About this RNA: small Cajal body-specific RNA 18: a 70-nucleotide RNA sequence from Castor canadensis. The family has 20 seed sequences and 406 matches in Rfam 15.1. Lineage of the source: Eukaryota > Chordata > Gnathostomata > Sarcopterygii > Castor. A search with the family's covariance model found it, with a score of 44 bits. scaRNAs are a specific class of small nuclear RNAs which localise to the Cajal bodies and guide the modification of RNA polymerase II transcribed spliceosomal RNAs U1, U2, U4, U5 and U12. The base pairs follow the family's consensus structure, which was predicted with PFOLD. Rfam links the family to the GO terms RNA processing, nucleolus and Cajal body.
[Rfam]
RNA sequence: CUACCAAUGAUGAUAUACGUGUGCUGAGUUCUGGGAACCAGGUGAUGGAGUAUGCUAAUGAAUGAGGCCA
Dot-bracket structure: ...((.........................((((...))))........................))...